About this RNA: Shown here is a 118-nucleotide RNA sequence from Panicum hallii, a member of the family "Small nucleolar RNA snoR104". NCBI's taxonomy places the organism under Eukaryota, Viridiplantae, Embryophyta, Petrosaviidae, Panicum hallii. The base pairs follow the family's consensus structure, which was predicted with WAR. The literature on the family includes a 2002 paper in Curr Biol by Marker et al., "Experimental RNomics: identification of 140 candidates for small non-messenger RNAs in the plant Arabidopsis thaliana".

RNA sequence: AGGUAGCAUUCAAAAGAAAAGAUGCCUACCCGAUACAAUCUUCCUAAAGUAAAUUUGUCAUUUCCUGCUUGUGGUAUUGUAAGCGAGUUCUGGAAGUCUCAAAUGACAAGACAGCCAU
Numbered sequence: 001a002g003g004u005a006g007c008a009u010u011c012a013a014a015a016g017a018a019a020a021g022a023u024g025c026c027u028a029c030c031c032g033a034u035a036c037a038a039u040c041u042u043c044c045u046a047a048a049g050u051a052a053a054u055u056u057g058u059c060a061u062u063u064c065c066u067g068c069u070u071g072u073g074g075u076a077u078u079g080u081a082a083g084c085g086a087g088u089u090c091u092g093g094a095a096g097u098c099u100c101a102a103a104u105g106a107c108a109a110g111a112c113a114g115c116c117a118u
Stems, first nucleotide, its partner, number of pairs: 002030002005027001006025005056111001058109001067097004072092003076088003